[Rfam]
L31-Gammaproteobacteria ribosomal protein leader: a 49-nucleotide RNA sequence. It is one of the family's seed sequences. Clan: Ribosomal Protein L31 Leader clan. The family's RNA type in Rfam is cis-regulatory leader. Pairs were carried over by alignment from the consensus structure, which is taken from published work.

RNA sequence: CGCAUGGUAUUCGGCAACAGAUCGGAUGGCGAUGCGGCCUGACAGAGGU
Numbered sequence: 001c002g003c004a005u006g007g008u009a010u011u012c013g014g015c016a017a018c019a020g021a022u023c024g025g026a027u028g029g030c031g032a033u034g035c036g037g038c039c040u041g042a043c044a045g046a047g048g049u
Stems, first nucleotide, its partner, number of pairs: 001036005007030002011025004015020001